[Rfam]
RNA: mir-190 microRNA precursor family
RNA sequence: GCCCCUGUGAGAUAUGUUUGAUAUUCUUGGUUGUUUAUGUAAAUAUCACCCAGGAAUCAAACAUAUUAUUACAGUGAC
Numbered sequence: 001g002c003c004c005c006u007g008u009g010a011g012a013u014a015u016g017u018u019u020g021a022u023a024u025u026c027u028u029g030g031u032u033g034u035u036u037a038u039g040u041a042a043a044u045a046u047c048a049c050c051c052a053g054g055a056a057u058c059a060a061a062c063a064u065a066u067u068a069u070u071a072c073a074g075u076g077a078c
Base pairs, nucleotide, nucleotide: 005074006073007072008071009070011067012066013065014064015063016062017061018060019059020058021057022056024054025053029051030050032048033047